RNA sequence: GGUGCAAGCCGUUCUAUCGCCGCACUUUGUGAGGAGGAAAGUCCGGGCAAUAUAGAGCAUCUCGCUUCCUAACGGGAAGGUCCCGGUUAAACCCGGGAACGGAAAGUGCCACAGAAAAUAAACCGUCUCGAUUGCUAUCGAGAUAAGGGUGAAAACGUGAGGUAAGAGCUCACGGCCUUGUAUGGCGACAUACAUUGCGGUAAACCCCGGGAAUUGAAAGACCAAAUAGGUUCUGAACGUAGGGUUGCUCGCUCUCUUCGCCUUUUAGGCGGAUUCAGAAUGGGUAGGUCGUUAGACCUUACAAGUGAUUGUAAGGCUAGAUAAAUGAUAGAAGCUCAACUUCGGUUGAGGACAGAACCCGGCUUAUAGGCUUGCUUUUUUU
Number, nucleotide and partner (000 for none) at each position: 001g378002g377003u000004g375005c374006a373007a372008g371009c370010c369011g367012u333013u332014c331015u330016a329017u328018c327019g000020c034021c033022g000023c031024a030025c029026u000027u000028u000029g025030u024031g023032a000033g021034g020035a000036g000037g000038a000039a365040a364041g363042u000043c362044c361045g360046g359047g358048c216049a215050a214051u213052a000053u000054a000055g000056a266057g265058c000059a000060u212061c211062u210063c209064g208065c079066u078067u077068c076069c075070u000071a000072a000073c000074g000075g069076g068077a067078a066079g065080g100081u098082c097083c096084c095085g094086g093087u000088u000089a000090a000091a000092c000093c086094c085095g084096g083097g082098a081099a000100c080101g207102g206103a000104a000105a000106g205107u204108g201109c200110c199111a000112c000113a000114g000115a000116a000117a000118a000119u000120a000121a000122a000123c148124c147125g144126u143127c142128u141129c140130g139131a138132u137133u000134g000135c000136u000137a132138u131139c130140g129141a128142g127143a126144u125145a000146a000147g124148g123149g000150u000151g000152a000153a000154a000155a000156c174157g173158u172159g171160a170161g169162g000163u000164a000165a000166g000167a000168g000169c161170u160171c159172a158173c157174g156175g000176c000177c000178u000179u194180g193181u192182a191183u190184g189185g000186c000187g000188a000189c184190a183191u182192a181193c180194a179195u000196u000197g000198c000199g110200g109201u108202a000203a000204a107205c106206c102207c101208c064209g063210g062211g061212a060213a051214u050215u049216g048217a000218a000219a000220g290221a289222c288223c287224a000225a000226a000227u000228a000229g000230g281231u280232u279233c278234u277235g276236a000237a000238c000239g000240u000241a000242g000243g000244g000245u000246u000247g000248c000249u000250c000251g000252c000253u000254c000255u000256c000257u000258u272259c271260g270261c269262c268263u000264u000265u057266u056267a000268g262269g261270c260271g259272g258273a000274u000275u000276c235277a234278g233279a232280a231281u230282g000283g000284g000285u000286a000287g223288g222289u221290c220291g000292u000293u000294a000295g000296a000297c316298c315299u314300u313301a312302c311303a310304a309305g000306u000307g000308a000309u304310u303311g302312u301313a300314a299315g298316g297317c000318u000319a000320g000321a000322u000323a000324a000325a000326u000327g018328a017329u016330a015331g014332a013333a012334g000335c000336u000337c000338a000339a000340c000341u000342u000343c000344g000345g000346u000347u000348g000349a000350g000351g000352a000353c000354a000355g000356a000357a000358c047359c046360c045361g044362g043363c041364u040365u039366a000367u011368a000369g010370g009371c008372u007373u006374g005375c004376u000377u002378u001379u000380u000381u000382u000
Shown here is a 382-nucleotide sequence from Olivibacter sp. LS-1, a member of the family "Bacterial RNase P class A". About the family: Ribonuclease P (RNase P) is a ubiquitous endoribonuclease, found in archaea, bacteria and eukarya as well as chloroplasts and mitochondria. The source organism's lineage runs through Bacteria, Pseudomonadati, Bacteroidota, Sphingobacteriales and Olivibacter.